[Rfam]
The family of this 99-nucleotide RNA from Microcaecilia unicolor is "mir-210 microRNA precursor family".
A reference for the family is Cai et al. (2005), "Kaposi's sarcoma-associated herpesvirus expresses an array of viral microRNAs in latently infected cells", Proc Natl Acad Sci U S A.
Pairs were carried over by alignment from the consensus structure, which was predicted with WAR.
Rfam 15.1 lists 790 matches to the family in 722 species.
Taxonomically the source falls in Microcaecilia (Eukaryota, Chordata, Dipnotetrapodomorpha, Tetrapoda).
RNA sequence: CCAAGAAGCAGGUUAGCCGCUGUCACACGCACAGUGGAGGGUCUACAGAAGCACAAUGUGCGUUAGUCAGUGGCUCAUCUGCUUCUGGAAACAGACACA
Numbered sequence: 001c002c003a004a005g006a007a008g009c010a011g012g013u014u015a016g017c018c019g020c021u022g023u024c025a026c027a028c029g030c031a032c033a034g035u036g037g038a039g040g041g042u043c044u045a046c047a048g049a050a051g052c053a054c055a056a057u058g059u060g061c062g063u064u065a066g067u068c069a070g071u072g073g074c075u076c077a078u079c080u081g082c083u084u085c086u087g088g089a090a091a092c093a094g095a096c097a098c099a
Base pairs, nucleotide, nucleotide: 005085006084007083008082009081010080011079012078015075016074017073018072019071020070021069022068024066025064028062029061030060031059032058033057035055036054